[Rfam]
Annotation:
The family of this 77-nucleotide sequence from Mytilus coruscus is "mir-67 microRNA precursor family". It scores 54 bits against the family's covariance model. The base pairs follow the family's consensus structure, which was predicted with RNAalifold. Gene Ontology terms of the family: miRNA-mediated post-transcriptional gene silencing and RISC complex. The literature on the family includes a 2008 paper in Insect Biochem Mol Biol by Cao et al., "Identification of conserved microRNAs in Bombyx mori (silkworm) and regulation of fibroin L chain production by microRNAs in heterologous system". The family has 33 seed sequences and 196 matches in Rfam 15.1. Lineage of the source: Eukaryota > Metazoa > Mytilida > Mytilinae > Mytilus.
RNA sequence: GAACAUGUGUCCUUAUUCAAACUGGUUGUGUUGUGGUUUUAUUUCAUCACAACCUCCUUGAAUGAGAUUUCAUGUCA
Numbered sequence: 001g002a003a004c005a006u007g008u009g010u011c012c013u014u015a016u017u018c019a020a021a022c023u024g025g026u027u028g029u030g031u032u033g034u035g036g037u038u039u040u041a042u043u044u045c046a047u048c049a050c051a052a053c054c055u056c057c058u059u060g061a062a063u064g065a066g067a068u069u070u071c072a073u074g075u076c077a
Stems, first nucleotide, its partner, number of pairs: 009068002012066009024054002027051004032046002